[Rfam]
RNA sequence: CUCGUCCGUCCCGUGGACGUGCCGACCAUCCCGGCAUGGACCCGGCUACCCUGGCGUGGUGCGCCCGGCGUGGGACGACCCACGGGCGCCUGAAGCCGACAGCCGUCGCAACUGAGGGAGCCCUUUCAUG
Number, nucleotide and partner (000 for none) at each position: 001c000002u000003c000004g000005u000006c000007c000008g000009u000010c000011c000012c000013g000014u000015g000016g000017a000018c000019g000020u000021g000022c000023c000024g000025a000026c000027c000028a000029u000030c000031c000032c000033g000034g000035c000036a000037u000038g000039g000040a000041c000042c000043c000044g000045g000046c000047u000048a000049c000050c000051c000052u000053g000054g000055c000056g000057u000058g000059g000060u092061g089062c088063g087064c000065c085066c084067g083068g000069c000070g000071u000072g000073g000074g000075a000076c000077g000078a000079c000080c000081c000082a000083c067084g066085g065086g000087c063088g062089c061090c000091u000092g060093a000094a000095g109096c108097c000098g107099a106100c105101a000102g000103c000104c000105g100106u099107c098108g096109c095110a000111a000112c000113u000114g000115a000116g000117g000118g000119a000120g000121c000122c000123c000124u000125u000126u000127c000128a000129u000130g000